Rfam assigns this 88-nucleotide sequence from Granulicella sp. WH15 to the family "nadA riboswitch".

Nucleotides: 088
Stems, first nucleotide, its partner, number of pairs: 001088007013074001014072001016081007023073001025070006032063003
Number, partner (000 for none) and nucleotide at each position: 001088g002087g003086u004085u005084g006083c007082a008000a009000c010000a011000u012000c013074c014072c015000c016081g017080u018079g019078g020077a021076u022075u023073g024000g025070g026069g027068a028067c029066u030065u031000u032063a033062u034061u035000c036000g037000g038000u039000u040000c041000a042000g043000g044000u045000c046000u047000g048000c049000a050000u051000u052000u053000g054000c055000c056000u057000g058000u059000c060000c061034g062033g063032u064000c065030g066029a067028g068027u069026c070025c071000g072014g073023c074013g075022a076021a077020u078019c079018c080017a081016c082007u083006g084005c085004a086003g087002c088001c

Lineage of the source: Bacteria > Pseudomonadati > Acidobacteriota > Acidobacteriaceae > Granulicella. The literature on the family includes a 2020 paper in Nucleic Acids Res by Chen et al., "Structural distinctions between NAD+ riboswitch domains 1 and 2 determine differential folding and ligand binding". The match comes from Rfam's covariance-model search (58 bits).